[Rfam]
The record is a 72-nucleotide RNA from Pseudomonas syringae group genomosp. 3, which matches "Pseudomonas sRNA P10" in Rfam. NCBI's taxonomy places the organism under Bacteria, Pseudomonadati, Pseudomonadota, Pseudomonas, Pseudomonas syringae pv. tomato.
RNA sequence: AUUAGGCGACAAGCACGCCUGCCCAGUGCCGGGUCACGGUACAACACCGAUCGCUUCUGCAUCCGGUGACGU
Numbered sequence: 001a002u003u004a005g006g007c008g009a010c011a012a013g014c015a016c017g018c019c020u021g022c023c024c025a026g027u028g029c030c031g032g033g034u035c036a037c038g039g040u041a042c043a044a045c046a047c048c049g050a051u052c053g054c055u056u057c058u059g060c061a062u063c064c065g066g067u068g069a070c071g072u
Stems, first nucleotide, its partner, number of pairs: 007071002017040003020036002023033002051069005

Pairs were carried over by alignment from the consensus structure, which was predicted with WAR. It is annotated as a small RNA.